[Rfam]
RNA sequence: GGCUGGUCUGAAGAUAGUGAGUUAUCUCAGUCGGAUUGUUCACAGUCAGUUACAGAUUGAACUCCUUGUUCUACUAUCCCUGCUUCUCUCUACUGCAAUUGACUAGUCUUUA
Dot-bracket structure: ((((((((.((...(((.(((......................(((.((.....................)))))..........))).))...)...))))))))))....
The family of this 112-nucleotide sequence from Nomascus leucogenys is "Y RNA". The family's consensus secondary structure is taken from published work. By type it is a non-coding RNA gene. The organism belongs to Nomascus, within Eukaryota. Rfam describes the family as follows. Y RNAs are components of the Ro ribonucleoprotein particle (Ro RNP), in association with Ro60 and La proteins. The Y RNAs and Ro60 and La proteins are well conserved, but the function of the Ro RNP is not known. In humans the RNA component can be one of four small RNAs -- hY1, hY3, hY4 and hY5. It scores 56 bits against the family's covariance model. Rfam 15.1 lists 26,986 matches to the family in 650 species.